Overview:
The record is a 255-nucleotide RNA sequence from Listeria monocytogenes, which matches "Listeria sRNA rli43" in Rfam. The sequence is in the family's curated seed alignment. The base pairs follow the family's consensus structure, which was predicted with RNAalifold. The source organism's lineage runs through Bacteria, Bacillati, Caryophanales, Listeria and Listeria monocytogenes.
[Rfam]
RNA sequence: UAAAUGGUGCGGGAUGGUAUACUAUACAAGCGUAUGGUUCAAAGAGAUACUUUGAAUUAAGAAGUACAAUAAAACUAUCUAAACUAGAUAAAAAGAAGAAAACAGCUUAUGUAGUACAUAAGUAUAAAUACUAUGGAGAGUGAGGUGCAAUAUGGGGGCAGCUGAUUUUUGGGGUUUCAUAUAUGUUGUUUCAAGAUUAGCCGUUGUUGCGGCAGUGGUUUACUUCUUAUAUUUAUUGAGAAAAAUUGCAAAUAA
Numbered sequence: 001u002a003a004a005u006g007g008u009g010c011g012g013g014a015u016g017g018u019a020u021a022c023u024a025u026a027c028a029a030g031c032g033u034a035u036g037g038u039u040c041a042a043a044g045a046g047a048u049a050c051u052u053u054g055a056a057u058u059a060a061g062a063a064g065u066a067c068a069a070u071a072a073a074a075c076u077a078u079c080u081a082a083a084c085u086a087g088a089u090a091a092a093a094a095g096a097a098g099a100a101a102a103c104a105g106c107u108u109a110u111g112u113a114g115u116a117c118a119u120a121a122g123u124a125u126a127a128a129u130a131c132u133a134u135g136g137a138g139a140g141u142g143a144g145g146u147g148c149a150a151u152a153u154g155g156g157g158g159c160a161g162c163u164g165a166u167u168u169u170u171g172g173g174g175u176u177u178c179a180u181a182u183a184u185g186u187u188g189u190u191u192c193a194a195g196a197u198u199a200g201c202c203g204u205u206g207u208u209g210c211g212g213c214a215g216u217g218g219u220u221u222a223c224u225u226c227u228u229a230u231a232u233u234u235a236u237u238g239a240g241a242a243a244a245a246u247u248g249c250a251a252a253u254a255a
Base pairs, nucleotide, nucleotide: 005214006213008211009210010209011208012207013205014204015203016202017201018200021038022037023036024035025034026033027032039055040054041053042052043051061192062191063190064189066186067185068184077176079174080173117135118134119133120132136170137169138168139167140166141165143163144162146160147159148158215249216248217247218246219245220244221243224242225241226240227239228238229237